[Rfam]
RNA sequence: GAGAGGUGAUGACACAGAGACAGGGGCUGUGUGUGUGUGAGGGGUGUGUGAGUGUGUGUGAGUGUGUGUGUGUGUGUGUGUGUUUGUGGGGCUCUCCUGGGGGCACUGAUGGCAGUGCUGAGCCAGGAGUGCAUCUGAGGCGUGUUGGGCACCUCGGGGGCCCCUCUGCAACACUGCCUGUGAUUAAAGCCCCAACAAAGCCCACCAGGAGAGCCCAGGCAGCCCAGAUGUCUCCAGGGUCACCAGAUCCUGUGCUCUGAUCUCA
Numbered sequence: 001g002a003g004a005g006g007u008g009a010u011g012a013c014a015c016a017g018a019g020a021c022a023g024g025g026g027c028u029g030u031g032u033g034u035g036u037g038u039g040a041g042g043g044g045u046g047u048g049u050g051a052g053u054g055u056g057u058g059u060g061a062g063u064g065u066g067u068g069u070g071u072g073u074g075u076g077u078g079u080g081u082g083u084u085u086g087u088g089g090g091g092c093u094c095u096c097c098u099g100g101g102g103g104c105a106c107u108g109a110u111g112g113c114a115g116u117g118c119u120g121a122g123c124c125a126g127g128a129g130u131g132c133a134u135c136u137g138a139g140g141c142g143u144g145u146u147g148g149g150c151a152c153c154u155c156g157g158g159g160g161c162c163c164c165u166c167u168g169c170a171a172c173a174c175u176g177c178c179u180g181u182g183a184u185u186a187a188a189g190c191c192c193c194a195a196c197a198a199a200g201c202c203c204a205c206c207a208g209g210a211g212a213g214c215c216c217a218g219g220c221a222g223c224c225c226a227g228a229u230g231u232c233u234c235c236a237g238g239g240u241c242a243c244c245a246g247a248u249c250c251u252g253u254g255c256u257c258u259g260a261u262c263u264c265a
Stems, first nucleotide, its partner, number of pairs: 001264004143173005148163002152159002
Small Cajal body-specific RNA 7: a 265-nucleotide RNA from Junco hyemalis. NCBI's taxonomy places the organism under Eukaryota, Eumetazoa, Teleostomi, Dipnotetrapodomorpha, Junco. The family's RNA type in Rfam is small Cajal body RNA. A reference for the family is Darzacq et al. (2002), "Cajal body-specific small nuclear RNAs: a novel class of 2'-O-methylation and pseudouridylation guide RNAs", EMBO J. The match comes from Rfam's covariance-model search (98 bits). Gene Ontology terms of the family: RNA processing and nucleolus.